Shown here is a 37-nucleotide sequence from Scytonema hofmannii, a member of the family "CRISPR RNA direct repeat element". Pairs were carried over by alignment from the consensus structure, which was predicted with WAR. The family has 3 seed sequences and 253 matches in Rfam 15.1. Rfam links the family to the GO term defense response.
Nucleotides: 037
Base pairs, nucleotide, nucleotide: 016031017030018029019028020027021026
Number, partner (000 for none) and nucleotide at each position: 001000u002000c003000u004000g005000a006000u007000u008000a009000a010000a011000c012000c013000u014000u015000a016031g017030a018029u019028a020027c021026c022000g023000u024000a025000a026021g027020g028019u029018g030017u031016u032000g033000a034000g035000c036000a037000c